[Rfam]
RNA sequence: UUGUCACUGGACGAAGUGAAUGGGUCAUAUGGGCUUGUCCAAGUUCCGACCCAGGAAAGUCCCCGGGCCACUUAUCCGCAGAGAUGCGCCUCGGUAACGAGAGAAUCUUGCGGUGGAGAGAUUCAAAUUGCUGAGACGCGUGUGUGGAGCUUAUGUGGUCUCUCCGCCGAUGAUAUCAUGGCCGUUCGACAGUUAUUCACCUCUUCCUCUAUGGACUAACUGAACGGGGCUUACGUUUCAAUGACA
Numbered sequence: 001u002u003g004u005c006a007c008u009g010g011a012c013g014a015a016g017u018g019a020a021u022g023g024g025u026c027a028u029a030u031g032g033g034c035u036u037g038u039c040c041a042a043g044u045u046c047c048g049a050c051c052c053a054g055g056a057a058a059g060u061c062c063c064c065g066g067g068c069c070a071c072u073u074a075u076c077c078g079c080a081g082a083g084a085u086g087c088g089c090c091u092c093g094g095u096a097a098c099g100a101g102a103g104a105a106u107c108u109u110g111c112g113g114u115g116g117a118g119a120g121a122u123u124c125a126a127a128u129u130g131c132u133g134a135g136a137c138g139c140g141u142g143u144g145u146g147g148a149g150c151u152u153a154u155g156u157g158g159u160c161u162c163u164c165c166g167c168c169g170a171u172g173a174u175a176u177c178a179u180g181g182c183c184g185u186u187c188g189a190c191a192g193u194u195a196u197u198c199a200c201c202u203c204u205u206c207c208u209c210u211a212u213g214g215a216c217u218a219a220c221u222g223a224a225c226g227g228g229g230c231u232u233a234c235g236u237u238u239c240a241a242u243g244a245c246a
Stems, first nucleotide, its partner, number of pairs: 002246005008240004014202001016200004021053006031046006057232003061229004077088004090101004105174003111169010130150002138145002204215003
Dot-bracket structure: .(((((.((((..[.[[[[.((((((....((((((....)))))).))))))...(((.((((............((((....)))).((((....))))...(((...((((((((((.........((......((....))...)).........))))))))))..)))......................]]]].].(((......)))..........)))))))....)))).)))))
Notes:
Rfam assigns this 246-nucleotide RNA sequence to the family "RNase MRP". Its family is annotated with ribonuclease MRP activity, ribonuclease MRP complex and rRNA processing in the Gene Ontology. Rfam's curators put it in the seed alignment. Rfam classes the family as a ribozyme.